[Rfam]
RNA sequence: UCCUCAACACAAACCACAGAUCUGUGUCCAGUAGUCCUGUUCCAGCUGCUGGUCGUCCUUCGUGAUGGCUAGUAGCUGUGUUUCGGUUGAUUCUGGACAGUUCGACGACCUAUGGAGCCAUCACUUUCUUAUGAUGUCAAUUUCCGGUCGACAGAUCUCAGAGCGAGAUACAGUGACCAGGAGUUCACUCUGCCUUGAGCUUCCGUCAGGUGAGCUCGGUGAGAUGGCCUGGUUGCUGAAGACGCCAUAUUCCGUCUCCCUUUACCGAUGUGCCCCUUCUUGGGGCCAGGCCGUCGGCUGAUGAGGUUAGGGACUAACCAUGGCAGCCAACAUCC
Numbered sequence: 001u002c003c004u005c006a007a008c009a010c011a012a013a014c015c016a017c018a019g020a021u022c023u024g025u026g027u028c029c030a031g032u033a034g035u036c037c038u039g040u041u042c043c044a045g046c047u048g049c050u051g052g053u054c055g056u057c058c059u060u061c062g063u064g065a066u067g068g069c070u071a072g073u074a075g076c077u078g079u080g081u082u083u084c085g086g087u088u089g090a091u092u093c094u095g096g097a098c099a100g101u102u103c104g105a106c107g108a109c110c111u112a113u114g115g116a117g118c119c120a121u122c123a124c125u126u127u128c129u130u131a132u133g134a135u136g137u138c139a140a141u142u143u144c145c146g147g148u149c150g151a152c153a154g155a156u157c158u159c160a161g162a163g164c165g166a167g168a169u170a171c172a173g174u175g176a177c178c179a180g181g182a183g184u185u186c187a188c189u190c191u192g193c194c195u196u197g198a199g200c201u202u203c204c205g206u207c208a209g210g211u212g213a214g215c216u217c218g219g220u221g222a223g224a225u226g227g228c229c230u231g232g233u234u235g236c237u238g239a240a241g242a243c244g245c246c247a248u249a250u251u252c253c254g255u256c257u258c259c260c261u262u263u264a265c266c267g268a269u270g271u272g273c274c275c276c277u278u279c280u281u282g283g284g285g286c287c288a289g290g291c292c293g294u295c296g297g298c299u300g301a302u303g304a305g306g307u308u309a310g311g312g313a314c315u316a317a318c319c320a321u322g323g324c325a326g327c328c329a330a331c332a333u334c335c
Base pairs, nucleotide, nucleotide: 018158019157020156021155022154023153024152025151026098027097028096029095030094031093033092034091035090036089037086038085039084042080044077045076046075047074048073049072051070052069053068055066056065057064106150107149108148109147110146113139114138115137117135119133171235172234176233177232178231179230180229181228191221192220193219194218197217198216199215200214201213202212203210204209241328243326244324245323246322247321248320257313258312259311260310261309264307265306266305289299290298291297292296
RNA: A. fumigatus sRNA Afu_309
Organism: Uncinocarpus reesii